[Rfam]
RNA sequence: UCAAUAUGUACCGAAGUGUGAUGGGGAAUUACUGGUUUUAUGUUACGUGCGAGAACUCAAUUCUGAGUUAACUGAGGGGGUAGCGAGUGAGUAUAGCUAUUAUCAUUGGCACACAU
Numbered sequence: 001u002c003a004a005u006a007u008g009u010a011c012c013g014a015a016g017u018g019u020g021a022u023g024g025g026g027a028a029u030u031a032c033u034g035g036u037u038u039u040a041u042g043u044u045a046c047g048u049g050c051g052a053g054a055a056c057u058c059a060a061u062u063c064u065g066a067g068u069u070a071a072c073u074g075a076g077g078g079g080g081u082a083g084c085g086a087g088u089g090a091g092u093a094u095a096g097c098u099a100u101u102a103u104c105a106u107u108g109g110c111a112c113a114c115a116u
Stems, first nucleotide, its partner, number of pairs: 022109001024107002028103002031098001032096003036091003041086001042084004048079001050077001054069006